[Rfam]
RNA sequence: CUUUAAAAAUCUGGAUCAAGCUGAAAAUUGAAACACAGAACAAUGCGAAUUGUUCCGUGGGUCUCUCAAAUUUUCGCAAUUGAUGGUGUUUUACGAAACAUCUUCGG
Numbered sequence: 001c002u003u004u005a006a007a008a009a010u011c012u013g014g015a016u017c018a019a020g021c022u023g024a025a026a027a028u029u030g031a032a033a034c035a036c037a038g039a040a041c042a043a044u045g046c047g048a049a050u051u052g053u054u055c056c057g058u059g060g061g062u063c064u065c066u067c068a069a070a071u072u073u074u075c076g077c078a079a080u081u082g083a084u085g086g087u088g089u090u091u092u093a094c095g096a097a098a099c100a101u102c103u104u105c106g107g
Stems, first nucleotide, its partner, number of pairs: 020077002023075007034059003038055007081106003085102004
RNA: Salmonella enterica Typhi npcRNA 44